[Rfam]
RNA sequence: CCCGCCCGCGGUGACUGGCGAGGAGACGUGGGAAACCACGGUGGAGCCGCGGGACAUACUAGCGCCGCUCGCCUGGGCCGGGGAC
Number, nucleotide and partner (000 for none) at each position: 001c000002c000003c000004g000005c053006c052007c051008g050009c049010g048011g047012u046013g000014a000015c043016u000017g073018g072019c071020g070021a069022g000023g000024a000025g000026a000027c000028g039029u038030g037031g036032g000033a000034a000035a000036c031037c030038a029039c028040g000041g000042u000043g015044g000045a000046g012047c011048c010049g009050c008051g007052g006053g005054a000055c000056a000057u000058a000059c000060u000061a000062g000063c000064g078065c077066c076067g000068c000069u021070c020071g019072c018073c017074u000075g000076g066077g065078c064079c000080g000081g000082g000083g000084a000085c000
Shown here is an 85-nucleotide RNA from Deinobacterium chartae, a member of the family "ZMP/ZTP riboswitch aptamer (pfl RNA motif)". The base pairs follow the family's consensus structure, which is taken from published work. Rfam links the family to the GO terms one-carbon metabolic process and regulation of purine nucleotide biosynthetic process. It scores 50 bits against the family's covariance model.